[Rfam]
RNA: Bacterial RNase P class A
RNA sequence: GGGUAAUGCCGCGCCCGUUUUAGAAUAUUCGGAGAGGAAAGUCCGGACACCACCGGGCAGGAUGCCGCACAAGCUUCGGCAAGUGCGGGCGCCGCGCGUCAAGGCGCGGCGACGGACAGUGUCACAGAAAACAAACCGCCUUCGCAGCGCGGCGAAAGUCGCGCGGUGGAGGUAAGGGUGAAAAGGUGGGGUAAGAGCCCACCGCGUUUCGCGUGAGCGGGACGGCACGAAAAACCCCUUCCGGUGCAAGGCAAAAUAGGCGGCUGGGCGGCCCGUCCGAUAGCCGCGGGUAUGCCGCAUCCUCCUUCGCUCGUGCGCUCCGCGCGCGAGCUACGGAGGACAGGUCCAUCGCGAGGUGGGCGUGAGAGAAAUGACGGCCGAAUCCCGCGUGAGCGGGAGGAACAGAAUCCGGCUUACCGGCCCCAAAG
Numbered sequence: 001g002g003g004u005a006a007u008g009c010c011g012c013g014c015c016c017g018u019u020u021u022a023g024a025a026u027a028u029u030c031g032g033a034g035a036g037g038a039a040a041g042u043c044c045g046g047a048c049a050c051c052a053c054c055g056g057g058c059a060g061g062a063u064g065c066c067g068c069a070c071a072a073g074c075u076u077c078g079g080c081a082a083g084u085g086c087g088g089g090c091g092c093c094g095c096g097c098g099u100c101a102a103g104g105c106g107c108g109g110c111g112a113c114g115g116a117c118a119g120u121g122u123c124a125c126a127g128a129a130a131a132c133a134a135a136c137c138g139c140c141u142u143c144g145c146a147g148c149g150c151g152g153c154g155a156a157a158g159u160c161g162c163g164c165g166g167u168g169g170a171g172g173u174a175a176g177g178g179u180g181a182a183a184a185g186g187u188g189g190g191g192u193a194a195g196a197g198c199c200c201a202c203c204g205c206g207u208u209u210c211g212c213g214u215g216a217g218c219g220g221g222a223c224g225g226c227a228c229g230a231a232a233a234a235c236c237c238c239u240u241c242c243g244g245u246g247c248a249a250g251g252c253a254a255a256a257u258a259g260g261c262g263g264c265u266g267g268g269c270g271g272c273c274c275g276u277c278c279g280a281u282a283g284c285c286g287c288g289g290g291u292a293u294g295c296c297g298c299a300u301c302c303u304c305c306u307u308c309g310c311u312c313g314u315g316c317g318c319u320c321c322g323c324g325c326g327c328g329a330g331c332u333a334c335g336g337a338g339g340a341c342a343g344g345u346c347c348a349u350c351g352c353g354a355g356g357u358g359g360g361c362g363u364g365a366g367a368g369a370a371a372u373g374a375c376g377g378c379c380g381a382a383u384c385c386c387g388c389g390u391g392a393g394c395g396g397g398a399g400g401a402a403c404a405g406a407a408u409c410c411g412g413c414u415u416a417c418c419g420g421c422c423c424c425a426a427a428g
Stems, first nucleotide, its partner, number of pairs: 001424003008421003011417001013379001015377005021032001023030002039415003043412005048246004055274004060242003064238001065088005089113001090111008114237002119235002122230002136177002138173008185203006204226001205224008250296004260287005265279005
Dot-bracket structure: (((....((((.(.(((((.(.((....)).)......[[[.[[[[[((((...[[[[.(((.((((((..............)))))(((((((((......)))))))).)((...((.((............((((((((((....................))))))))..)).......((((((.......))))))(((((((((....)))))))).)..))...))))).)))))))...((((......((((((((((.]]]])))))...))))).....))))............................................................................))))).)............................]]]]]]]].).))))))....